[Rfam]
RNA sequence: AAAUUUAUUUUUAACCAGUAUUUUUGCCUGCCUUAAUUUUGCGAUAUCGAGACAGUCUCUCUAAGCUGGAAGAAUGUUAUAUCUAGCGAUAUGAUUGACCGACUUAAGUUCCGUUGUGAAACUAUGUGAAAAACGUUACACAGCUCUAUUGUCGUUCAUAAAUCU
Number, nucleotide and partner (000 for none) at each position: 001a000002a000003a000004u000005u000006u000007a000008u000009u000010u000011u000012u000013a000014a000015c069016c068017a067018g066019u065020a000021u000022u000023u000024u000025u000026g000027c000028c055029u054030g053031c000032c051033u050034u049035a000036a047037u000038u000039u000040u000041g000042c000043g000044a000045u000046a000047u036048c000049g034050a033051g032052a000053c030054a029055g028056u000057c000058u000059c000060u000061c000062u000063a000064a000065g019066c018067u017068g016069g015070a000071a000072g000073a000074a000075u000076g000077u000078u000079a000080u000081a000082u000083c000084u000085a000086g000087c000088g000089a000090u000091a000092u000093g000094a000095u000096u158097g157098a156099c000100c154101g000102a152103c151104u000105u000106a000107a000108g000109u000110u000111c000112c000113g144114u143115u142116g141117u140118g139119a000120a137121a136122c135123u000124a000125u000126g134127u133128g000129a000130a000131a000132a000133a127134c126135g122136u121137u120138a000139c118140a117141c116142a115143g114144c113145u000146c000147u000148a000149u000150u000151g103152u102153c000154g100155u000156u098157c097158a096159u000160a000161a000162a000163u000164c000165u000
The record is a 165-nucleotide RNA sequence from Naumovozyma dairenensis, which matches "Small nucleolar RNA snR161" in Rfam. The literature on the family includes a 2004 paper in Nucleic Acids Res by Schattner et al., "Genome-wide searching for pseudouridylation guide snoRNAs: analysis of the Saccharomyces cerevisiae genome". It scores 88 bits against the family's covariance model. Taxonomically the source falls in Naumovozyma dairenensis (Eukaryota, Opisthokonta, Saccharomycotina, Saccharomycetaceae).